[Rfam]
RNA sequence: AUUCCUUCUAUCGUGUAUCCGCGAUUAAUGCAGCCUUGAAUGCUCCA
Numbered sequence: 001a002u003u004c005c006u007u008c009u010a011u012c013g014u015g016u017a018u019c020c021g022c023g024a025u026u027a028a029u030g031c032a033g034c035c036u037u038g039a040a041u042g043c044u045c046c047a
Stems, first nucleotide, its partner, number of pairs: 010025004032044003

Plastid-ycf3 group II-D1 intron: a 47-nucleotide RNA. From the family's description: Plastid rpl16 is a non-coding RNA (ncRNA) recognised in plastids. It was recognised in and intronic region of a ribosome rpl16 gene.